[Rfam]
RNA sequence: AGCAUUGGUUGACAGCUGUUAUUUUUAAUAAUAGAGGAAAGUCCGCGCUAGCACAGGCUGAGAUGCCUGUAGUGAUCAUGCCAACAUUAAUAAGGUUGGGGUAAUUAAAUUACACGACUAGCACCACAGAGACGAGAAUUGUGAAACGGGUAAGCUCCAUGAGCUAGAAACUCAAAUUAAGGUAGAGGAAUCUAGAUUCGGGAAUUGAACCGAUAUAGAAGUUUAUAACUAGAUAAAUUGUCAACACCUAUAUUAAUAGGUACAGAACGCGGCUUAUAGAU
Numbered sequence: 001a002g003c004a005u006u007g008g009u010u011g012a013c014a015g016c017u018g019u020u021a022u023u024u025u026u027a028a029u030a031a032u033a034g035a036g037g038a039a040a041g042u043c044c045g046c047g048c049u050a051g052c053a054c055a056g057g058c059u060g061a062g063a064u065g066c067c068u069g070u071a072g073u074g075a076u077c078a079u080g081c082c083a084a085c086a087u088u089a090a091u092a093a094g095g096u097u098g099g100g101g102u103a104a105u106u107a108a109a110u111u112a113c114a115c116g117a118c119u120a121g122c123a124c125c126a127c128a129g130a131g132a133c134g135a136g137a138a139u140u141g142u143g144a145a146a147c148g149g150g151u152a153a154g155c156u157c158c159a160u161g162a163g164c165u166a167g168a169a170a171c172u173c174a175a176a177u178u179a180a181g182g183u184a185g186a187g188g189a190a191u192c193u194a195g196a197u198u199c200g201g202g203a204a205u206u207g208a209a210c211c212g213a214u215a216u217a218g219a220a221g222u223u224u225a226u227a228a229c230u231a232g233a234u235a236a237a238u239u240g241u242c243a244a245c246a247c248c249u250a251u252a253u254u255a256a257u258a259g260g261u262a263c264a265g266a267a268c269g270c271g272g273c274u275u276a277u278a279g280a281u
Stems, first nucleotide, its partner, number of pairs: 004281003007277001008245007016034006039275003043272005048167005053070006076162005081099005100115001101113005116157002121155002123151003171187003191219004196214001220230004247260005
RNA: Bacterial RNase P class B